RNA sequence: UUUAUUGCCGAUGCAGCAUCAUCAAGAUUCUCACUUUCAAAAGAACUCUGGCAGAGUGCAGAUUUUGCAAUCACCCACUGUGCAUUUGCAUGUGAAUCUUGAUGAUGCUACACCCGCAAACAA
Numbered sequence: 001u002u003u004a005u006u007g008c009c010g011a012u013g014c015a016g017c018a019u020c021a022u023c024a025a026g027a028u029u030c031u032c033a034c035u036u037u038c039a040a041a042a043g044a045a046c047u048c049u050g051g052c053a054g055a056g057u058g059c060a061g062a063u064u065u066u067g068c069a070a071u072c073a074c075c076c077a078c079u080g081u082g083c084a085u086u087u088g089c090a091u092g093u094g095a096a097u098c099u100u101g102a103u104g105a106u107g108c109u110a111c112a113c114c115c116g117c118a119a120a121c122a123a
Base pairs, nucleotide, nucleotide: 010114012112013111015109016108017107018106019105020104021103022102023101024100025099026098027097028096029095030094032092033091